[Rfam]
RNA sequence: CCUGCCACUAUGCCUGUCUGUCAAGAGUGACUGAGUAUAAUCCAGUGGAGGCUCAGAUAGACCCAGCUUUAGGAAACAGGGCUGCCCACCUUAAUGGACAGUUCUGUGCCGAAAAGCCUGGAACACGU
Numbered sequence: 001c002c003u004g005c006c007a008c009u010a011u012g013c014c015u016g017u018c019u020g021u022c023a024a025g026a027g028u029g030a031c032u033g034a035g036u037a038u039a040a041u042c043c044a045g046u047g048g049a050g051g052c053u054c055a056g057a058u059a060g061a062c063c064c065a066g067c068u069u070u071a072g073g074a075a076a077c078a079g080g081g082c083u084g085c086c087c088a089c090c091u092u093a094a095u096g097g098a099c100a101g102u103u104c105u106g107u108g109c110c111g112a113a114a115a116g117c118c119u120g121g122a123a124c125a126c127g128u
Stems, first nucleotide, its partner, number of pairs: 005048005018035002020032001021030002063121004067116004072110002077106006086097002
The family of this 128-nucleotide RNA from Mastacembelus armatus is "Small nucleolar RNA SNORA65". U65 belongs to the H/ACA class of snoRNAs which are thought to guide the sites of modification of uridines to pseudouridines. The source organism's lineage runs through Eukaryota, Eumetazoa, Actinopterygii, Acanthomorphata and Mastacembelus. The base pairs follow the family's consensus structure, which was predicted with RNAalifold.